[Rfam]
Nucleotides: 090
Stems, first nucleotide, its partner, number of pairs: 001090005
Number, partner (000 for none) and nucleotide at each position: 001090g002089g003088g004087c005086u006000a007000a008000u009000g010000a011000u012000g013000a014000u015000a016000u017000a018000u019000c020000u021000u022000a023000g024000g025000g026000a027000a028000a029000c030000u031000u032000a033000u034000c035000u036000u037000u038000g039000u040000a041000g042000a043000u044000u045000u046000c047000c048000g049000u050000g051000a052000g053000a054000u055000u056000u057000c058000u059000g060000u061000c062000a063000a064000u065000g066000a067000u068000c069000u070000g071000a072000u073000u074000g075000u076000u077000a078000c079000a080000c081000a082000u083000u084000g085000a086005a087004g088003c089002c090001u
Source information:
Shown here is a 90-nucleotide RNA sequence from Protea cynaroides, a member of the family "Small nucleolar RNA R11/Z151". Rfam classes the family as a C/D-box small nucleolar RNA. Taxonomically the source falls in Protea (Eukaryota, Spermatophyta, Magnoliopsida, Proteaceae). The literature on the family includes a 2001 paper in J Mol Biol by Barneche et al., "Identification of 66 box C/D snoRNAs in Arabidopsis thaliana: extensive gene duplications generated multiple isoforms predicting new ribosomal RNA 2'-O-methylation sites".